Nitrogen stress-induced RNA 1: a 54-nucleotide sequence from Synechococcales cyanobacterium K44_A2020_017. A search with the family's covariance model found it, with a score of 53 bits. NCBI's taxonomy places the organism under Bacteria, Bacillati, Cyanobacteriota, Cyanophyceae, Synechococcales. By type it is a small RNA.
[Rfam]
RNA sequence: UGGUAGAUGCACCCUGAUUCAGACCUCGAAGCCGUUGGCUUCGGGGUUUUCUUU
Dot-bracket structure: .(((......)))..........((((((((((...))))))))))........
On this family, see Ionescu et al., J Mol Biol 2010: "Heterocyst-specific transcription of NsiR1, a non-coding RNA encoded in a tandem array of direct repeats in cyanobacteria". Pairs were carried over by alignment from the consensus structure.